[Rfam]
RNA sequence: AGAUCGCGGCCGCAGCCGCCUAGGUGGCGGCCGCUCAUGUGCCCCCUCCAGGGGGU
Numbered sequence: 001a002g003a004u005c006g007c008g009g010c011c012g013c014a015g016c017c018g019c020c021u022a023g024g025u026g027g028c029g030g031c032c033g034c035u036c037a038u039g040u041g042c043c044c045c046c047u048c049c050a051g052g053g054g055g056u
Stems, first nucleotide, its partner, number of pairs: 006034007016026001018025002041056006

A member of the RNA family "Pyrobaculum asRNA3" from Thermoproteus tenax, 56 nucleotides long. For this family Rfam cites "Diversity of Antisense and Other Non-Coding RNAs in Archaea Revealed by Comparative Small RNA Sequencing in Four Pyrobaculum Species" (Bernick et al., Front Microbiol, 2012). Rfam's curators write: Binds to the 3'-end of the tpi gene (triose-phosphate-isomerse). The tpi mRNA has a conserved structural element located close to the stop codon. Binding of the asR3 may be able to compete against the formation of the tpi element structure and this may modulate the function of this highly conserved element. Rfam classes the family as an antisense RNA.